[Rfam]
RNA sequence: GGUUGCAAAUUUGAGGCCAUAGCAGAAGUGUUCACAGUGCAGCCCUGCCAGAUUCAAAUGAAUCUUGUGAAUCCUUCU
Dot-bracket structure: ............(.(((...[[.[[.[(((.......))).))))...(((((((....))))).))....].]].]]
This 78-nucleotide RNA sequence from Alligator mississippiensis belongs to the Rfam family "Mammalian CPEB3 ribozyme". Its family is annotated with RNA nuclease activity in the Gene Ontology. The organism belongs to Alligator, within Eukaryota. Pairs were carried over by alignment from the consensus structure, which is taken from published work. A search with the family's covariance model found it, with a score of 47 bits.